[Rfam]
RNA sequence: GCUGGCGUAGCUCAAUGGCAGAGCAGCUGACUUGUAAUCAGCAGGUUGCGGGUUCAAGUCCCAUCGCCAGCU
Numbered sequence: 001g002c003u004g005g006c007g008u009a010g011c012u013c014a015a016u017g018g019c020a021g022a023g024c025a026g027c028u029g030a031c032u033u034g035u036a037a038u039c040a041g042c043a044g045g046u047u048g049c050g051g052g053u054u055c056a057a058g059u060c061c062c063a064u065c066g067c068c069a070g071c072u
Stems, first nucleotide, its partner, number of pairs: 001071007010024004026042005048064001050062003
Shown here is a 72-nucleotide RNA sequence from Humidesulfovibrio mexicanus, a member of the family "tRNA".